[Rfam]
RNA sequence: AAUAGCGCGUAGUCGCGGCUUAUCAUUUGUCUGAUGAUAAGUUGAGGAAAGUCCAGGCUCGCCUAGCGCUGAGAUGCCUAGCGUGUUCGCGCCAUCCGCAAGGGUGGGCAGUCGAUCGGUUCGGCUGACGGCGGUGAAAUCAGGCUAAGUCCCCUUUUUUCAAAAAGAGGAUAUGCUGAGAGUAACCUGAAAGUGCCACAGAGACGAUACGCGAUUCGAAAGAGUCGCGCUGGAACGGGUAAACCCCGCGAGCGAGCAACCCAAACGAUGGUAGGGGCGCCACCUAGAGGGAAUUCAACCAAAAAGGUGGAUCAGCAAACAAAACAACAGCUGAUAGUUAAAUGACUACACCUGUUUGCGCCAGCUUAGCGAGCGACAUGAGCGCGCAGGAACAAAACCUGGCUUACAGCU
Numbered sequence: 001a002a003u004a005g006c007g008c009g010u011a012g013u014c015g016c017g018g019c020u021u022a023u024c025a026u027u028u029g030u031c032u033g034a035u036g037a038u039a040a041g042u043u044g045a046g047g048a049a050a051g052u053c054c055a056g057g058c059u060c061g062c063c064u065a066g067c068g069c070u071g072a073g074a075u076g077c078c079u080a081g082c083g084u085g086u087u088c089g090c091g092c093c094a095u096c097c098g099c100a101a102g103g104g105u106g107g108g109c110a111g112u113c114g115a116u117c118g119g120u121u122c123g124g125c126u127g128a129c130g131g132c133g134g135u136g137a138a139a140u141c142a143g144g145c146u147a148a149g150u151c152c153c154c155u156u157u158u159u160u161c162a163a164a165a166a167g168a169g170g171a172u173a174u175g176c177u178g179a180g181a182g183u184a185a186c187c188u189g190a191a192a193g194u195g196c197c198a199c200a201g202a203g204a205c206g207a208u209a210c211g212c213g214a215u216u217c218g219a220a221a222g223a224g225u226c227g228c229g230c231u232g233g234a235a236c237g238g239g240u241a242a243a244c245c246c247c248g249c250g251a252g253c254g255a256g257c258a259a260c261c262c263a264a265a266c267g268a269u270g271g272u273a274g275g276g277g278c279g280c281c282a283c284c285u286a287g288a289g290g291g292a293a294u295u296c297a298a299c300c301a302a303a304a305a306g307g308u309g310g311a312u313c314a315g316c317a318a319a320c321a322a323a324a325c326a327a328c329a330g331c332u333g334a335u336a337g338u339u340a341a342a343u344g345a346c347u348a349c350a351c352c353u354g355u356u357u358g359c360g361c362c363a364g365c366u367u368a369g370c371g372a373g374c375g376a377c378a379u380g381a382g383c384g385c386g387c388a389g390g391a392a393c394a395a396a397a398c399c400u401g402g403c404u405u406a407c408a409g410c411u
Base pairs, nucleotide, nucleotide: 004411005410006409007407009349010348011347012346013345014344016044017043018042019041020040021039022038023037024036025035049405050404051403053402054401055400056399057398058256059255060254061253062252063081064080065079066078068077069076087251088250089249090248091247092107093106094105095104096103097102108129109127110126111125112124113123114122130246131245133187134186135185141178142177144176145175149172150171151170193244194243195240196239197238210229211228212227213226214225215224216223217222260276261275262274280310281309282308283307284306285305311335312334313333314332315331316330351390352389353388354387355386357384358383359382
RNA: Bacterial RNase P class B